The family of this 145-nucleotide RNA sequence from Betta splendens is "Small nucleolar RNA SNORA79".
From the family's description: ACA65 (SNORA79) is a member of the H/ACA class of snoRNAs that guide the sites of modification of uridines to pseudouridines. This snoRNA was identified by computational screening and its expression in mouse experimentally verified by Northern blot and primer extension analysis.
The base pairs follow the family's consensus structure, which was predicted with RNAalifold.
Its family is annotated with RNA processing and nucleolus in the Gene Ontology.
RNA sequence: CGAUGGCGGUUCCUCCUCCUGUCUGCAGUGAAUCAGGAGGAUUUUACGACAUCGCAGAGAAAUUUGGGGGUUUUUUUUCACCCAGGGAGCUUCAGGCUUUAGCCAAAGUGAAAAUGUCUCCCUGGUUUUGCGGAACCCAACAAAC
Numbered sequence: 001c002g003a004u005g006g007c008g009g010u011u012c013c014u015c016c017u018c019c020u021g022u023c024u025g026c027a028g029u030g031a032a033u034c035a036g037g038a039g040g041a042u043u044u045u046a047c048g049a050c051a052u053c054g055c056a057g058a059g060a061a062a063u064u065u066g067g068g069g070g071u072u073u074u075u076u077u078u079c080a081c082c083c084a085g086g087g088a089g090c091u092u093c094a095g096g097c098u099u100u101a102g103c104c105a106a107a108g109u110g111a112a113a114a115u116g117u118c119u120c121c122c123u124g125g126u127u128u129u130g131c132g133g134a135a136c137c138c139a140a141c142a143a144a145c
Stems, first nucleotide, its partner, number of pairs: 001054005007048002014041005020035002069137006082125008091116001